mir-344 microRNA precursor family: a 73-nucleotide RNA from Nannospalax galili. The family's consensus secondary structure was predicted with RNAalifold. The match comes from Rfam's covariance-model search (56 bits). For this family Rfam cites "Mammalian microRNAs: experimental evaluation of novel and previously annotated genes" (Chiang et al., Genes Dev, 2010). Rfam links the family to the GO terms RISC complex and miRNA-mediated post-transcriptional gene silencing.

RNA sequence: AUUGUAGUCAGGCUCCUGUCUGGAGUCCAGCUCUUAUCUGGAUCCAGGUUCUGGCCAGGGGCCUGACUUUAUA
Number, nucleotide and partner (000 for none) at each position: 001a000002u000003u000004g000005u000006a000007g067008u066009c065010a000011g063012g062013c060014u059015c000016c000017u057018g056019u000020c054021u053022g052023g051024a050025g000026u000027c041028c040029a039030g038031c000032u000033c000034u000035u000036a000037u000038c030039u029040g028041g027042a000043u000044c000045c000046a000047g000048g000049u000050u024051c023052u022053g021054g020055c000056c018057a017058g000059g014060g013061g000062c012063c011064u000065g009066a008067c007068u000069u000070u000071a000072u000073a000